[Rfam]
RNA: c-di-GMP-I-GGC riboswitch aptamer
Organism: Olavius algarvensis associated proteobacterium Delta 3
RNA sequence: UUCGACAAAGCCAAACUCCGAGCAAUCGGAGGACGGAAAGCUACGGGUCCGAAGUGACAUCCUGACUCUCGAGUUUGCUGAAAUUCCUGCUGUUUACAUCGGAUAGCCGGGUUGCCGAAA
Numbered sequence: 001u002u003c004g005a006c007a008a009a010g011c012c013a014a015a016c017u018c019c020g021a022g023c024a025a026u027c028g029g030a031g032g033a034c035g036g037a038a039a040g041c042u043a044c045g046g047g048u049c050c051g052a053a054g055u056g057a058c059a060u061c062c063u064g065a066c067u068c069u070c071g072a073g074u075u076u077g078c079u080g081a082a083a084u085u086c087c088u089g090c091u092g093u094u095u096a097c098a099u100c101g102g103a104u105a106g107c108c109g110g111g112u113u114g115c116c117g118a119a120a
Base pairs, nucleotide, nucleotide: 001120003117004116011036012035016031017030018029019028020027021026034106039113040112041111042110044109045108046107047104048103049102050101051100052099